This 117-nucleotide RNA sequence from Geomicrobium halophilum belongs to the Rfam family "ylbH leader".
RNA sequence: AAACAAAAAACCGCGUACCAAAUUGGUACGCGGUGCCUGCUGUAACAAACAUUACAGGCAAUGGGAGAGGAGAAACCGGAGGAAGCGCUUAUGGGGAAAUGUAAGCGUUCUCCGCGG
Numbered sequence: 001a002a003a004c005a006a007a008a009a010a011c012c013g014c015g016u017a018c019c020a021a022a023u024u025g026g027u028a029c030g031c032g033g034u035g036c037c038u039g040c041u042g043u044a045a046c047a048a049a050c051a052u053u054a055c056a057g058g059c060a061a062u063g064g065g066a067g068a069g070g071a072g073a074a075a076c077c078g079g080a081g082g083a084a085g086c087g088c089u090u091a092u093g094g095g096g097a098a099a100u101g102u103a104a105g106c107g108u109u110c111u112c113c114g115c116g117g
Stems, first nucleotide, its partner, number of pairs: 011033009034065001036063001038061001040057006077114004082110003087106005

Rfam's curators write: This family is a putative regulatory RNA structure that is found upstream of the ylbH gene in B. subtilis and related low GC Gram-positive bacteria. Rfam links the family to the GO term regulation of gene expression. By type it is a cis-regulatory leader.